[Rfam]
The record is a 120-nucleotide sequence from Vibrio nereis, which matches "TPP riboswitch aptamer (THI element)" in Rfam. The organism belongs to Vibrio, within Bacteria. Vitamin B(1) in its active form thiamin pyrophosphate (TPP) is an essential coenzyme that is synthesised by coupling of pyrimidine and thiazole moieties in bacteria. The previously detected thiamin-regulatory element, thi box was extended, resulting in a new, highly conserved RNA secondary structure, the THI element, which is widely distributed in eubacteria and also occurs in some archaea. Analysis of operon structures identified a large number of new candidate thiamin-regulated genes, mostly transporters, in various prokaryotic organisms. The THI element is a riboswitch that directly binds to TPP to regulate gene expression through a variety of mechanisms in archaea, bacteria and eukaryotes. through a variety of mechanisms in archaea, bacteria and eukaryotes. Gene Ontology term of the family: thiamine pyrophosphate binding. Pairs were carried over by alignment from the consensus structure, which is taken from published work.
RNA sequence: CGAUACUCAUCGGGGCGCUAUUCAUCCUAUCAAUAGGGAUCAGCUGAGAUCGAGCGCAAGCUCGGGACCCGUGUACCUGAACCAGAUAAUGCUGGCGUAGGAAUUGAGUUUGGACACGAA
Numbered sequence: 001c002g003a004u005a006c007u008c009a010u011c012g013g014g015g016c017g018c019u020a021u022u023c024a025u026c027c028u029a030u031c032a033a034u035a036g037g038g039a040u041c042a043g044c045u046g047a048g049a050u051c052g053a054g055c056g057c058a059a060g061c062u063c064g065g066g067a068c069c070c071g072u073g074u075a076c077c078u079g080a081a082c083c084a085g086a087u088a089a090u091g092c093u094g095g096c097g098u099a100g101g102a103a104u105u106g107a108g109u110u111u112g113g114a115c116a117c118g119a120a
Base pairs, nucleotide, nucleotide: 006108007107008106009105011071012070013069014068016065017044018043019042051064052063053062054061055060076101077100078099079098082095083094084093085092